[Rfam]
RNA sequence: UCCCGCUGCCCUUCUUGGGCGUUUCCUCCCUAGACUUCGGGCCGCUCCAUUCGGGGCGGCCUUUUUUCUUGCCUCG
Numbered sequence: 001u002c003c004c005g006c007u008g009c010c011c012u013u014c015u016u017g018g019g020c021g022u023u024u025c026c027u028c029c030c031u032a033g034a035c036u037u038c039g040g041g042c043c044g045c046u047c048c049a050u051u052c053g054g055g056g057c058g059g060c061c062u063u064u065u066u067u068c069u070u071g072c073c074u075c076g
Stems, first nucleotide, its partner, number of pairs: 008020004040061009
This 76-nucleotide sequence from Methylorubrum rhodinum belongs to the Rfam family "Makes More Granules Regulator RNA (mmgR)".
The base pairs follow the family's consensus structure.
Lineage of the source: Bacteria > Pseudomonadati > Pseudomonadota > Methylobacteriaceae > Methylorubrum.